[Rfam]
RNA sequence: AGCCAGUGAUGUAAGGAUAAUAUUUGCUACUCUUGAUGGUGGUUAUAACCCCCUCUGAUGAUUAUUUAUCCACCAAGAUCUUUGAGGCU
Numbered sequence: 001a002g003c004c005a006g007u008g009a010u011g012u013a014a015g016g017a018u019a020a021u022a023u024u025u026g027c028u029a030c031u032c033u034u035g036a037u038g039g040u041g042g043u044u045a046u047a048a049c050c051c052c053c054u055c056u057g058a059u060g061a062u063u064a065u066u067u068a069u070c071c072a073c074c075a076a077g078a079u080c081u082u083u084g085a086g087g088c089u
Stems, first nucleotide, its partner, number of pairs: 001089004
Overview:
The family of this 89-nucleotide sequence from Papaver somniferum is "Small nucleolar RNA SNORD24". Its family is annotated with RNA processing and nucleolus in the Gene Ontology. It scores 65 bits against the family's covariance model. The base pairs follow the family's consensus structure, which was predicted with PFOLD.